Overview: A member of the RNA family "6S / SsrS RNA" from Azonexus hydrophilus, 180 nucleotides long. Pairs were carried over by alignment from the consensus structure, which is taken from published work. By type it is a non-coding RNA gene. A search with the family's covariance model found it, with a score of 57 bits.

RNA sequence: UGUUCCCUGCGGUGUUUGUUAAGGCCAUAUAUUCCUUGAACCAAUGCUUAUUGGCAUCGGUUGCGGACCAAAUACCCGCUGUUGUGCGCGUUCUUCGUCGAAUGUGCCUGAUGCGGAAGGAAAGCAACCACUCUGGACCCAGGUUCAGGAUGCCGGCCUGACGGCACUCGCGGGGACUUA
Dot-bracket structure: .(.((((((((((((.(((.............(((.((((((................(((.((...(....(.((.((......((.(((((......))))).)).....)))).).)...)).)))............)))))))))..........))))))).)))))))).)..